[Rfam]
RNA sequence: GGCCAGUGAUUUGAGAUCAUUGUCCGUACCAUCUGAGAUCCAUCUCUCUGAUGCAAAUCUCUACCUCUAACAUCUGAGGCCC
Dot-bracket structure: ((((.........................................................................)))).
RNA: small nucleolar RNA snoR117